[Rfam]
Rfam assigns this 185-nucleotide RNA to the family "Actinobacteria sRNA Ms_IGR-5".
The pairing is the family consensus, mapped onto this sequence.

RNA sequence: ACACAGGGAAGGAGGUGGUCCGACAAAUUGAUUGACUUAUGGACAUGUGAGGUGGCUGCGAGCUAGCAGCGCCAGGGAGAGCGCUCGACGCACCUGUGCGCGCUGGCGAAUUCCCCGCAGUCACCCGGCCCCCGAGCCCCUCGGUCUUGUCCGACCCAGGAACAACGGCUCGGGGGCCGCUCCAU
Numbered sequence: 001a002c003a004c005a006g007g008g009a010a011g012g013a014g015g016u017g018g019u020c021c022g023a024c025a026a027a028u029u030g031a032u033u034g035a036c037u038u039a040u041g042g043a044c045a046u047g048u049g050a051g052g053u054g055g056c057u058g059c060g061a062g063c064u065a066g067c068a069g070c071g072c073c074a075g076g077g078a079g080a081g082c083g084c085u086c087g088a089c090g091c092a093c094c095u096g097u098g099c100g101c102g103c104u105g106g107c108g109a110a111u112u113c114c115c116c117g118c119a120g121u122c123a124c125c126c127g128g129c130c131c132c133c134g135a136g137c138c139c140c141u142c143g144g145u146c147u148u149g150u151c152c153g154a155c156c157c158a159g160g161a162a163c164a165a166c167g168g169c170u171c172g173g174g175g176g177c178c179g180c181u182c183c184a185u
Stems, first nucleotide, its partner, number of pairs: 015059005062107006069101004074095002126179013140159002143156003